[Rfam]
RNA sequence: GAUUAUUGAGGGUAGAACAGGCAGCUACCGCACCCUUUGGGUAUAAAGAGAUGUGGGACACGCCGCCCCACCAAUAAUC
Numbered sequence: 001g002a003u004u005a006u007u008g009a010g011g012g013u014a015g016a017a018c019a020g021g022c023a024g025c026u027a028c029c030g031c032a033c034c035c036u037u038u039g040g041g042u043a044u045a046a047a048g049a050g051a052u053g054u055g056g057g058a059c060a061c062g063c064c065g066c067c068c069c070a071c072c073a074a075u076a077a078u079c
Base pairs, nucleotide, nucleotide: 001079002078003077004076005075006074007073008072011029012028013027014026015025020064021063022062031048032042033041034040035039053071054070055069056068057067
RNA: skipping-rope RNA